[Rfam]
RNA sequence: GGGGGGAGGUCAGAAUCUGGGAUGUUUCCUCAGUGCCCCGUGCUCCCGGGUCUGCUCUGUUGGAUUCGUGCUCCCUGCCGGGCAGCCGCCU
Numbered sequence: 001g002g003g004g005g006g007a008g009g010u011c012a013g014a015a016u017c018u019g020g021g022a023u024g025u026u027u028c029c030u031c032a033g034u035g036c037c038c039c040g041u042g043c044u045c046c047c048g049g050g051u052c053u054g055c056u057c058u059g060u061u062g063g064a065u066u067c068g069u070g071c072u073c074c075c076u077g078c079c080g081g082g083c084a085g086c087c088g089c090c091u
Base pairs, nucleotide, nucleotide: 001091002090003089005087006086009083010082011080013078016077019074020073021072023070024069025068027064028063029062031059032058033057035055036054040052042051043050044049

This 91-nucleotide RNA sequence from Canis lupus belongs to the Rfam family "mir-8799 microRNA precursor family". The family has 7 seed sequences and 20,638 matches in Rfam 15.1. Taxonomically the source falls in Canis lupus (Eukaryota, Bilateria, Laurasiatheria, Canidae). The base pairs follow the family's consensus structure, which was predicted with RNAalifold.